[Rfam]
RNA sequence: GGUCUUAUGCAAGUUUUGUAAAGUGUCACCUUAUUCUGAAGGGAUAUUUUACUCCGCUUGCAAAUUA
Numbered sequence: 001g002g003u004c005u006u007a008u009g010c011a012a013g014u015u016u017u018g019u020a021a022a023g024u025g026u027c028a029c030c031u032u033a034u035u036c037u038g039a040a041g042g043g044a045u046a047u048u049u050u051a052c053u054c055c056g057c058u059u060g061c062a063a064a065u066u067a
Stems, first nucleotide, its partner, number of pairs: 001066003008062007018052010029042004

A member of the RNA family "mir-2822 microRNA precursor family" from Bombyx mori, 67 nucleotides long. It is one of the family's seed sequences. Taxonomically the source falls in Bombyx (Eukaryota, Mandibulata, Dicondylia, Neolepidoptera). Rfam links the family to the GO terms RISC complex and miRNA-mediated post-transcriptional gene silencing.